[Rfam]
RNA sequence: CCCGUCGCGAGGCGGAAUCUGAAGGAAGCCGAAGCCCCCAGUCGGGAGCCGACGAACAGGAACCGGAUAUCAGGCCGGCGUGGCGGGGUCAGCGGGCAACGGACCGCGAAGCCCAAUCUCACUCGGACGCACACGCGGGUAAAUCCGGCGGUCGCUCGACGAAGCAACGCAACUUAC
Numbered sequence: 001c002c003c004g005u006c007g008c009g010a011g012g013c014g015g016a017a018u019c020u021g022a023a024g025g026a027a028g029c030c031g032a033a034g035c036c037c038c039c040a041g042u043c044g045g046g047a048g049c050c051g052a053c054g055a056a057c058a059g060g061a062a063c064c065g066g067a068u069a070u071c072a073g074g075c076c077g078g079c080g081u082g083g084c085g086g087g088g089u090c091a092g093c094g095g096g097c098a099a100c101g102g103a104c105c106g107c108g109a110a111g112c113c114c115a116a117u118c119u120c121a122c123u124c125g126g127a128c129g130c131a132c133a134c135g136c137g138g139g140u141a142a143a144u145c146c147g148g149c150g151g152u153c154g155c156u157c158g159a160c161g162a163a164g165c166a167a168c169g170c171a172a173c174u175u176a177c
Base pairs, nucleotide, nucleotide: 002015003014004013005012006011028177031174037169041160042159043158044157045156046155048152049151050150051149063148064147065146066145067144068143074140075139076138078136079135080134081133082132083130084129086114087113088112089111092107093106094105095104
Group II catalytic intron D1-D4-3: a 177-nucleotide RNA sequence from Gemmata obscuriglobus.
The sequence is in the family's curated seed alignment.
Taxonomically the source falls in Gemmata obscuriglobus (Bacteria, Pseudomonadati, Planctomycetia, Gemmataceae).
From the family's description: Group II introns are found in rRNA, tRNA and mRNA of organelles in fungi, plants and protists, and also in mRNA in bacteria.